[Rfam]
RNA sequence: GGAAGCUGUACGCGUUGCGGUGCAACGAUGGUUAAUGA
Numbered sequence: 001g002g003a004a005g006c007u008g009u010a011c012g013c014g015u016u017g018c019g020g021u022g023c024a025a026c027g028a029u030g031g032u033u034a035a036u037g038a
Stems, first nucleotide, its partner, number of pairs: 006030001013027006
RNA: Selenocysteine insertion sequence 4
Organism: Enterocloster bolteae